[Rfam]
RNA sequence: AAUAUGAGUAGAAGCGGUCAGUACGAUUUAUCCGUACGGGACAUUGCUCAGUAA
Number, nucleotide and partner (000 for none) at each position: 001a000002a000003u000004a000005u050006g049007a048008g047009u046010a045011g000012a000013a000014g000015c039016g000017g000018u041019c040020a000021g037022u036023a035024c034025g033026a000027u000028u000029u000030a000031u000032c000033c025034g024035u023036a022037c021038g000039g015040g019041a018042c000043a000044u000045u010046g009047c008048u007049c006050a005051g000052u000053a000054a000
The family of this 54-nucleotide RNA from Klebsiella ornithinolytica is "Xanthine riboswitch aptamer (NMT1 RNA)".
A reference for the family is Xu et al. (2021), "Insights into xanthine riboswitch structure and metal ion-mediated ligand recognition", Nucleic Acids Res.
Rfam's curators put it in the seed alignment.